[Rfam]
RNA: IMES-3 RNA motif
RNA sequence: AGGAUAAAAACUGGGGGGUGUUAGAAGUUAGUCACUUAGAAACGGGUCGUCGCAAGAUGGACAAUCUAGGUGAAAAACGGACAAAACCAACUCCGGAUCAAUAAACUGAGAUCGUCCACAACUUUCGAGUUGGAUCGCAGUUAAAGGUAAA
Numbered sequence: 001a002g003g004a005u006a007a008a009a010a011c012u013g014g015g016g017g018g019u020g021u022u023a024g025a026a027g028u029u030a031g032u033c034a035c036u037u038a039g040a041a042a043c044g045g046g047u048c049g050u051c052g053c054a055a056g057a058u059g060g061a062c063a064a065u066c067u068a069g070g071u072g073a074a075a076a077a078c079g080g081a082c083a084a085a086a087c088c089a090a091c092u093c094c095g096g097a098u099c100a101a102u103a104a105a106c107u108g109a110g111a112u113c114g115u116c117c118a119c120a121a122c123u124u125u126c127g128a129g130u131u132g133g134a135u136c137g138c139a140g141u142u143a144a145a146g147g148u149a150a151a
Base pairs, nucleotide, nucleotide: 011096012095013094014093015092016091017088018087019086027078028077029076032073033072034071035070036069037068038067039066040065046062047061048060049058050057051056104142105141106140107139108138110136111135112134113133119132120131121130122129123128